[Rfam]
RNA: Bacterial small signal recognition particle RNA
Organism: Alkalinema sp. CACIAM 70d
RNA sequence: GACUCGGAUCUACGCGGUUUCAACGCCCAAAUCUUGUCAGGACCGGAAGGUAGCAGCAAUACGGGAUGCUUGGAACAGGCGUAGUCUCCGGGUCUCU
Numbered sequence: 001g002a003c004u005c006g007g008a009u010c011u012a013c014g015c016g017g018u019u020u021c022a023a024c025g026c027c028c029a030a031a032u033c034u035u036g037u038c039a040g041g042a043c044c045g046g047a048a049g050g051u052a053g054c055a056g057c058a059a060u061a062c063g064g065g066a067u068g069c070u071u072g073g074a075a076c077a078g079g080c081g082u083a084g085u086c087u088c089c090g091g092g093u094c095u096c097u
Stems, first nucleotide, its partner, number of pairs: 004091005010084005017076006026065003034059004042051003
Dot-bracket structure: ...(((((.(((((..((((((...(((.....((((....(((....)))....))))...))).....))))))...)))))..)))))......